The record is an 87-nucleotide RNA sequence from Carpinus fangiana, which matches "Small nucleolar RNA Z122" in Rfam.
The organism belongs to Carpinus, within Eukaryota.
It scores 71 bits against the family's covariance model.
Gene Ontology terms of the family: nucleolus and RNA processing.
For this family Rfam cites "The high diversity of snoRNAs in plants: identification and comparative study of 120 snoRNA genes from Oryza sativa" (Chen et al., Nucleic Acids Res, 2003).
The family's RNA type in Rfam is C/D-box small nucleolar RNA.

[Rfam]
RNA sequence: UUUGGGAAAUGAUGCCAAAAUUAAAAAAAGAGUGACUGAAGCAUUGGCUCUGCUGAAUAUUAUUUUGCACGUCAGUCUGAUCCCAAA
Dot-bracket structure: (((((((.........................................................................)))))))